Shown here is a 332-nucleotide RNA sequence from Alligator mississippiensis, a member of the family "Nuclear RNase P". By type it is a ribozyme. Rfam 15.1 lists 3,848 matches to the family in 1,862 species.
Nucleotides: 332
Base pairs, nucleotide, nucleotide: 001332002331003330004329007326008325009324012273013272014271015270016268017267021063022062023061024060034048035047036046037045038044073316074315075314076313077312083247084246085245086244093107094106097103108124109123110122111121112120113119125243126242127241128240129239131237145227146226275303276302277301278300279299
Number, partner (000 for none) and nucleotide at each position: 001332u002331c003330a004329g005000a006000a007326g008325g009324a010000a011000g012273c013272u014271c015270a016268c017267c018000a019000c020000u021063g022062a023061g024060g025000a026000c027000a028000c029000u030000u031000g032000c033000u034048g035047a036046g037045u038044g039000c040000u041000g042000g043000u044038c045037a046036u047035u048034c049000c050000c051000u052000c053000c054000u055000c056000u057000c058000u059000g060024c061023c062022u063021c064000u065000g066000g067000g068000a069000a070000g071000g072000u073316c074315u075314g076313a077312g078000a079000c080000a081000a082000g083247a084246g085245c086244c087000a088000g089000c090000a091000g092000c093107u094106g095000c096000c097103c098000u099000g100000g101000c102000a103097g104000a105000a106094c107093a108124c109123c110122c111121c112120c113119u114000g115000a116000u117000g118000c119113a120112g121111g122110g123109g124108g125243a126242u127241g128240a129239g130000g131237u132000a133000c134000c135000a136000g137000g138000g139000a140000g141000g142000c143000u144000a145227g146226g147000c148000c149000c150000u151000c152000c153000c154000u155000u156000g157000g158000g159000a160000g161000a162000g163000a164000c165000a166000c167000a168000g169000g170000a171000a172000g173000u174000c175000a176000a177000u178000g179000a180000g181000g182000a183000a184000g185000g186000g187000g188000g189000g190000u191000u192000c193000c194000u195000u196000c197000u198000c199000u200000g201000g202000c203000u204000g205000a206000u207000g208000u209000c210000u211000g212000c213000u214000c215000c216000c217000u218000g219000u220000g221000g222000a223000g224000g225000c226146u227145c228000g229000u230000u231000g232000a233000g234000a235000c236000a237131g238000g239129c240128u241127c242126a243125u244086g245085g246084c247083u248000g249000g250000c251000a252000c253000u254000u255000c256000u257000g258000a259000g260000u261000c262000c263000a264000a265000u266000g267017g268016g269000a270015u271014g272013a273012g274000a275303u276302g277301a278300g279299g280000c281000c282000u283000g284000u285000g286000u287000c288000c289000c290000c291000u292000g293000c294000a295000u296000a297000c298000c299279c300278c301277u302276c303275a304000c305000a306000a307000c308000c309000c310000a311000a312077u313076u314075c315074a316073g317000a318000c319000u320000a321000c322000u323000c324009u325008c326007c327000c328000u329004c330003u331002g332001a